About this RNA
This 98-nucleotide sequence from Oryza sativa belongs to the Rfam family "MIR5534 microRNA precursor family". Lineage of the source: Eukaryota > Viridiplantae > Mesangiospermae > commelinids > Oryza.
RNA sequence: AACUUUGUUCGAUGACAACAGCUAGAAUGGCCGCGGCGACGGAGGAUUGUCCCCCGAUGAGGCCGCCAUUCUAGCUGUUGUUGUCGAGACGCUAAAGU
Numbered sequence: 001a002a003c004u005u006u007g008u009u010c011g012a013u014g015a016c017a018a019c020a021g022c023u024a025g026a027a028u029g030g031c032c033g034c035g036g037c038g039a040c041g042g043a044g045g046a047u048u049g050u051c052c053c054c055c056g057a058u059g060a061g062g063c064c065g066c067c068a069u070u071c072u073a074g075c076u077g078u079u080g081u082u083g084u085c086g087a088g089a090c091g092c093u094a095a096a097g098u
Stems, first nucleotide, its partner, number of pairs: 002098006008088024033063002037059002040056003044052003